[Rfam]
RNA sequence: UCACCAUCGAGACCGGCAGAGGGACAGGCCCUUUGAAGCCGGGGCAACCAGCGGACGCGCAAGCGGCUGCGUUUGGUGCCAAAUCCUGCGGUGACCUCCGUGUCCGCCGAAAGAUGGUUC
Numbered sequence: 001u002c003a004c005c006a007u008c009g010a011g012a013c014c015g016g017c018a019g020a021g022g023g024a025c026a027g028g029c030c031c032u033u034u035g036a037a038g039c040c041g042g043g044g045c046a047a048c049c050a051g052c053g054g055a056c057g058c059g060c061a062a063g064c065g066g067c068u069g070c071g072u073u074u075g076g077u078g079c080c081a082a083a084u085c086c087u088g089c090g091g092u093g094a095c096c097u098c099c100g101u102g103u104c105c106g107c108c109g110a111a112a113g114a115u116g117g118u119u120c
Base pairs, nucleotide, nucleotide: 003118004117005116006115007114008113013042014041015040016039017038021031022030023029025088026087027086028085043080044079045078046077048076049075050073051072052071053070084112089109090108091107092106093105
Dot-bracket structure: ..((((((....(((((...(((.[[[[)))......)))))((((.((((((................)))).))))))...(]]]](((((...........)))))..)))))))..
The record is a 120-nucleotide RNA from Stenotrophomonas terrae, which matches "SAM riboswitch aptamer (S box leader)" in Rfam.
Pairs were carried over by alignment from the consensus structure, which is taken from published work.
Gene Ontology term of the family: regulation of gene expression.
Lineage of the source: Bacteria > Pseudomonadati > Lysobacterales > Lysobacteraceae > Stenotrophomonas.